[Rfam]
RNA sequence: GCGAUGAGCUAAUUUGCGUAAGUCGGAAAGCUUGCUGUAAAGCAGAACGUCUGGAUGUGGCCAGGCGGUUUUCCGCCGCAAAUACGUCAAAAAAAAGCUGUCAUAAGGGGCUUUG
Numbered sequence: 001g002c003g004a005u006g007a008g009c010u011a012a013u014u015u016g017c018g019u020a021a022g023u024c025g026g027a028a029a030g031c032u033u034g035c036u037g038u039a040a041a042g043c044a045g046a047a048c049g050u051c052u053g054g055a056u057g058u059g060g061c062c063a064g065g066c067g068g069u070u071u072u073c074c075g076c077c078g079c080a081a082a083u084a085c086g087u088c089a090a091a092a093a094a095a096a097g098c099u100g101u102c103a104u105a106a107g108g109g110g111c112u113u114u115g
Base pairs, nucleotide, nucleotide: 014081015080016079017078018077024075025074026073027072028071029070030069031068034043035042048067049066051064052063053062094114095113096112097111098110099109101107
A member of the RNA family "BsrF" from Bacillus aerolatus, 115 nucleotides long. For this family Rfam cites "Novel small RNA-encoding genes in the intergenic regions of Bacillus subtilis" (Saito et al., Gene, 2008). Rfam classes the family as a small RNA. The family's consensus secondary structure was predicted with WAR. A search with the family's covariance model found it, with a score of 82 bits.